[Rfam]
RNA sequence: GGCCGGUGAUGAUCUUCUAACUACCUUUCUGACACCUCGUCUGAGGGCGGCGGGCGGCCGCGGCCCCUUGCUGAGGUUCCACGGCUGAGGCCC
Number, nucleotide and partner (000 for none) at each position: 001g092002g091003c090004c089005g000006g000007u000008g000009a000010u000011g000012a000013u000014c000015u000016u000017c000018u000019a000020a000021c000022u000023a000024c000025c000026u000027u000028u000029c000030u000031g000032a000033c000034a000035c000036c000037u000038c000039g000040u000041c000042u000043g000044a000045g000046g000047g067048c000049g065050g064051c063052g000053g000054g000055c000056g000057g000058c000059c000060g000061c000062g000063g051064c050065c049066c000067c047068u000069u000070g000071c000072u000073g000074a000075g000076g000077u000078u000079c000080c000081a000082c000083g000084g000085c000086u000087g000088a000089g004090g003091c002092c001093c000

The family of this 93-nucleotide sequence from Atlantisia rogersi is "Small nucleolar RNA SNORD60".
The family has 22 seed sequences and 825 matches in Rfam 15.1.
The family's RNA type in Rfam is C/D-box small nucleolar RNA.
The family is grouped with related families in Rfam's "SNORD60 clan".
The base pairs follow the family's consensus structure, which was predicted with PFOLD.
Its family is annotated with nucleolus and RNA processing in the Gene Ontology.